The family of this 35-nucleotide sequence from Pipistrellus kuhlii is "Iron response element I". The base pairs follow the family's consensus structure, which is taken from published work. Lineage of the source: Eukaryota > Bilateria > Sarcopterygii > Eutheria > Pipistrellus. The literature on the family includes a 2001 paper in Insect Mol Biol by Zhang et al., "Repression of Manduca sexta ferritin synthesis by IRP1/IRE interaction". By type it is a cis-regulatory element.
RNA sequence: CCGUCUCUUGCUUCAACAGUGUUUGGACUGAACAA
Numbered sequence: 001c002c003g004u005c006u007c008u009u010g011c012u013u014c015a016a017c018a019g020u021g022u023u024u025g026g027a028c029u030g031a032a033c034a035a
Base pairs, nucleotide, nucleotide: 003033004032006031007030010028012027013026014025015024016023017021